[Rfam]
RNA sequence: UAGAUUUGAGGUUGGAAAUGGCUCCCAACACGCUAUCUUUUAGAUAGUUACCAGAGAUGCAGGAUACGCCGCCCUGCCAACUCUA
Numbered sequence: 001u002a003g004a005u006u007u008g009a010g011g012u013u014g015g016a017a018a019u020g021g022c023u024c025c026c027a028a029c030a031c032g033c034u035a036u037c038u039u040u041u042a043g044a045u046a047g048u049u050a051c052c053a054g055a056g057a058u059g060c061a062g063g064a065u066a067c068g069c070c071g072c073c074c075u076g077c078c079a080a081c082u083c084u085a
Stems, first nucleotide, its partner, number of pairs: 001085004006080003011029005019071004031054001032048007059077005
RNA: skipping-rope RNA
Organism: Paraclostridium benzoelyticum